[Rfam]
RNA sequence: ACGUUUGGGUAAUCGCUGCAACGCCAACGUUGUAGAGGAAAGUCCAUGCUCGCACGGCCUGAGAUGGCUGUAGUGUUCGUGCCUAGCCAAUUCAUAAGCUAGGGUAUUCUGGCUGUAAGGCUGGUUUAACGGCAGGGAAAAAACCUAAGUCCUUUCGGAUAUGGUUUGACUACCUUUAAAGUGCCACAGUGACGAAGUCCUUGAAGAAAUGAUAGGAGUGGAACGAGGUAAACCCCACGAGCGAGAAACCCAAAUAAUGGUAGGGGAAUCUUUUCCAAGGAAAUGAACGACGGGAAAGGACAGGUUUUAUAACCUGUAGAUAGAUGAUUGCCACCGGAGUACGAGGCGUGGGCCGUUUGUAGUACAAAGGAACAGAACAUGGCUUACAGAA
Numbered sequence: 001a002c003g004u005u006u007g008g009g010u011a012a013u014c015g016c017u018g019c020a021a022c023g024c025c026a027a028c029g030u031u032g033u034a035g036a037g038g039a040a041a042g043u044c045c046a047u048g049c050u051c052g053c054a055c056g057g058c059c060u061g062a063g064a065u066g067g068c069u070g071u072a073g074u075g076u077u078c079g080u081g082c083c084u085a086g087c088c089a090a091u092u093c094a095u096a097a098g099c100u101a102g103g104g105u106a107u108u109c110u111g112g113c114u115g116u117a118a119g120g121c122u123g124g125u126u127u128a129a130c131g132g133c134a135g136g137g138a139a140a141a142a143a144c145c146u147a148a149g150u151c152c153u154u155u156c157g158g159a160u161a162u163g164g165u166u167u168g169a170c171u172a173c174c175u176u177u178a179a180a181g182u183g184c185c186a187c188a189g190u191g192a193c194g195a196a197g198u199c200c201u202u203g204a205a206g207a208a209a210u211g212a213u214a215g216g217a218g219u220g221g222a223a224c225g226a227g228g229u230a231a232a233c234c235c236c237a238c239g240a241g242c243g244a245g246a247a248a249c250c251c252a253a254a255u256a257a258u259g260g261u262a263g264g265g266g267a268a269u270c271u272u273u274u275c276c277a278a279g280g281a282a283a284u285g286a287a288c289g290a291c292g293g294g295a296a297a298g299g300a301c302a303g304g305u306u307u308u309a310u311a312a313c314c315u316g317u318a319g320a321u322a323g324a325u326g327a328u329u330g331c332c333a334c335c336g337g338a339g340u341a342c343g344a345g346g347c348g349u350g351g352g353c354c355g356u357u358u359g360u361a362g363u364a365c366a367a368a369g370g371a372a373c374a375g376a377a378c379a380u381g382g383c384u385u386a387c388a389g390a391a
Stems, first nucleotide, its partner, number of pairs: 004391003007387001008332007016035006040385003044382005049245005054071006077240005082103006104130001105128002109124006131235002134175003142166004149160003181233002183229003198217004205210001249265003269299007300317006334370002339365004
The family of this 391-nucleotide RNA sequence from Bacillus cereus is "Bacterial RNase P class B". Ribonuclease P (RNase P) is a ubiquitous endoribonuclease, found in archaea, bacteria and eukarya as well as chloroplasts and mitochondria. Its best characterised activity is the generation of mature 5'-ends of tRNAs by cleaving the 5'-leader elements of precursor-tRNAs. Cellular RNase Ps are ribonucleoproteins. By type it is a ribozyme. The sequence is in the family's curated seed alignment. Gene Ontology terms of the family: dimeric ribonuclease P complex, tRNA processing and ribonuclease P activity.